[Rfam]
RNA sequence: CGGGCCAGAAGAGGUGCGUCAUUCAGGCAGCUGCCGGUCAACCGGAAAUUUGCGGCAGUCAGGGGAAUGUACGCCGAGAUAGUUCAGGGUUCCGGAGCCCUGCCUAUCGGCCGCGGAGGCUGAAUCCUUCCGGCUGUCACCUUGCGAGGUGGAGCGCUUCUGGGUGC
Numbered sequence: 001c002g003g004g005c006c007a008g009a010a011g012a013g014g015u016g017c018g019u020c021a022u023u024c025a026g027g028c029a030g031c032u033g034c035c036g037g038u039c040a041a042c043c044g045g046a047a048a049u050u051u052g053c054g055g056c057a058g059u060c061a062g063g064g065g066a067a068u069g070u071a072c073g074c075c076g077a078g079a080u081a082g083u084u085c086a087g088g089g090u091u092c093c094g095g096a097g098c099c100c101u102g103c104c105u106a107u108c109g110g111c112c113g114c115g116g117a118g119g120c121u122g123a124a125u126c127c128u129u130c131c132g133g134c135u136g137u138c139a140c141c142u143u144g145c146g147a148g149g150u151g152g153a154g155c156g157c158u159u160c161u162g163g164g165u166g167c
Stems, first nucleotide, its partner, number of pairs: 006162006016074004021068004030059007078108005085102005109135004115130005137152006